The family of this 68-nucleotide RNA from Streptomyces agglomeratus is "ASdes TB sRNA". On this family, see Arnvig and Young, Mol Microbiol 2009: "Identification of small RNAs in Mycobacterium tuberculosis". Rfam 15.1 lists 1,192 matches to the family in 825 species. The source organism's lineage runs through Bacteria, Actinomycetota, Actinomycetes, Streptomycetaceae and Streptomyces.
RNA sequence: AGCUUGUCCGGGUCAACGGCACGGGACGUCAGCAGGUAGUCCCGCAUCACGAUGCCGUGCCGGCCCUC
Numbered sequence: 001a002g003c004u005u006g007u008c009c010g011g012g013u014c015a016a017c018g019g020c021a022c023g024g025g026a027c028g029u030c031a032g033c034a035g036g037u038a039g040u041c042c043c044g045c046a047u048c049a050c051g052a053u054g055c056c057g058u059g060c061c062g063g064c065c066c067u068c
Stems, first nucleotide, its partner, number of pairs: 004063003008059001011030003017025001035056004040052002044048001